[Rfam]
RNA sequence: GGUCUGUGAUGAAUAGUAAAAGGUCUGAUUAUCCUAAGGUUUGCACUUCCAUGCCCUUUUCUCCCAGCAGUUUCUCACCAGCUACAGCACAGUAAUGGUGUGGCUGGCAGAGUGUUUGCUGACAAUUUGAGAUGUGUUCAGUUCAUGUUAACCUGAAGUAUCGGAGACAUGACUGGGAUCAGCAUCCAACAGUCCUGCAUGAAGGAGUUCGGGGUCUUGGAUUGCUGUAACUGGAAAUGUGAUCUGACUUUUCUGCUGAGACC
Dot-bracket structure: ((((................................(((((......((((.(.......((((((((((.......(((((((((............)))))))))........)))))).......(.(((((........((((((..(..........)..))))))..........))))))................))))........).))))...................)))))..............))))
Shown here is a 263-nucleotide RNA from Geococcyx californianus, a member of the family "Small Cajal body specific RNA 6". For this family Rfam cites "Cajal body-specific small nuclear RNAs: a novel class of 2'-O-methylation and pseudouridylation guide RNAs" (Darzacq et al., EMBO J, 2002). Taxonomically the source falls in Geococcyx (Eukaryota, Dipnotetrapodomorpha, Saurischia, Neognathae). U88 is small Cajal body specific RNA (scaRNA). scaRNAs are a novel class of small nuclear RNAs which localise to the Cajal bodies. The base pairs follow the family's consensus structure, which is taken from published work.